[Rfam]
RNA: SAH (S-adenosyl-L-homocysteine) riboswitch aptamer
Organism: Candidatus Nitrotoga sp. AM1P
RNA sequence: GGUUCCGAGGGGCGCUGCGACCUUGCAUCAGACGAGGCCAGGCUUGGAACACUGGGGUAUAUCUGUAGCAACGGCGCUCAUUCAUU
Numbered sequence: 001g002g003u004u005c006c007g008a009g010g011g012g013c014g015c016u017g018c019g020a021c022c023u024u025g026c027a028u029c030a031g032a033c034g035a036g037g038c039c040a041g042g043c044u045u046g047g048a049a050c051a052c053u054g055g056g057g058u059a060u061a062u063c064u065g066u067a068g069c070a071a072c073g074g075c076g077c078u079c080a081u082u083c084a085u086u
Base pairs, nucleotide, nucleotide: 002050003049004048005047006046007045008044021037022036023035024034025033